[Rfam]
RNA sequence: UAUGUUACAUCGCUUAAUCUUUUAUAAGAACGGGGGACCCAAUAUUUACGGCGGAACUUUCCGCUUGGGGUGAAUCCUUAAAUGGAAGGGCUUACUGUUUCCCAUAGCCCUAACCCGAAAGCUAACCUCGUCAGCGUUUAAGGAAACAAAA
Dot-bracket structure: ..........((((...(((......)))((((((....((........................))(((.....((......))..((((...............))))...))).........)))))).))))...............
Numbered sequence: 001u002a003u004g005u006u007a008c009a010u011c012g013c014u015u016a017a018u019c020u021u022u023u024a025u026a027a028g029a030a031c032g033g034g035g036g037a038c039c040c041a042a043u044a045u046u047u048a049c050g051g052c053g054g055a056a057c058u059u060u061c062c063g064c065u066u067g068g069g070g071u072g073a074a075u076c077c078u079u080a081a082a083u084g085g086a087a088g089g090g091c092u093u094a095c096u097g098u099u100u101c102c103c104a105u106a107g108c109c110c111u112a113a114c115c116c117g118a119a120a121g122c123u124a125a126c127c128u129c130g131u132c133a134g135c136g137u138u139u140a141a142g143g144a145a146a147c148a149a150a151a
Stems, first nucleotide, its partner, number of pairs: 011136004018029003030131006040067002068116003076085002088110004
A member of the RNA family "c-di-AMP riboswitch aptamer (ydaO/yuaA leader)" from Cytobacillus horneckiae, 151 nucleotides long. The match comes from Rfam's covariance-model search (87 bits).